This 100-nucleotide RNA from Jiella endophytica belongs to the Rfam family "Glycine riboswitch aptamer".
The source organism's lineage runs through Bacteria, Pseudomonadati, Pseudomonadota, Hyphomicrobiales and Jiella.
[Rfam]
RNA sequence: UUCCGAAGAGUGGCGGCCCGCACGGGGUCGUCCGCCGAAGGAGAAAGCCGCGCCGGGAAUGAUCCCGCGCCGCGGUGAAGCUCUCAGGCUCAUGACGGGA
Numbered sequence: 001u002u003c004c005g006a007a008g009a010g011u012g013g014c015g016g017c018c019c020g021c022a023c024g025g026g027g028u029c030g031u032c033c034g035c036c037g038a039a040g041g042a043g044a045a046a047g048c049c050g051c052g053c054c055g056g057g058a059a060u061g062a063u064c065c066c067g068c069g070c071c072g073c074g075g076u077g078a079a080g081c082u083c084u085c086a087g088g089c090u091c092a093u094g095a096c097g098g099g100a
Base pairs, nucleotide, nucleotide: 001100002099003098004097005096012032013031014030015029016028017027034089035088036087037085038084041083042082043081047076048075049074050073051072052071